[Rfam]
RNA sequence: UUGCCUUAAACUAAUGAGUAAGGAAAACAAAGCGGUACGGUGAGAGCCGCUCGCGAUGCGGGGGUCAAAACCCCGCACGACAAUUUUUGCAGGGGAAAAGAGGCUGGCGCGGGCACGGACACUGCUUACUUUUGCAGGACCUGUCUGUGUAGGCCUCCCC
Numbered sequence: 001u002u003g004c005c006u007u008a009a010a011c012u013a014a015u016g017a018g019u020a021a022g023g024a025a026a027a028c029a030a031a032g033c034g035g036u037a038c039g040g041u042g043a044g045a046g047c048c049g050c051u052c053g054c055g056a057u058g059c060g061g062g063g064g065u066c067a068a069a070a071c072c073c074c075g076c077a078c079g080a081c082a083a084u085u086u087u088u089g090c091a092g093g094g095g096a097a098a099a100g101a102g103g104c105u106g107g108c109g110c111g112g113g114c115a116c117g118g119a120c121a122c123u124g125c126u127u128a129c130u131u132u133u134g135c136a137g138g139a140c141c142u143g144u145c146u147g148u149g150u151a152g153g154c155c156u157c158c159c160c
Stems, first nucleotide, its partner, number of pairs: 004023005032054003038049003057077005093160003101156002110147002113144003117140001122137004
A member of the RNA family "U12 minor spliceosomal RNA" from Triticum turgidum, 160 nucleotides long. It is annotated as a spliceosomal small nuclear RNA. Rfam 15.1 lists 2,106 matches to the family in 1,170 species. A search with the family's covariance model found it, with a score of 78 bits. Lineage of the source: Eukaryota > Viridiplantae > Streptophytina > Mesangiospermae > Triticum turgidum.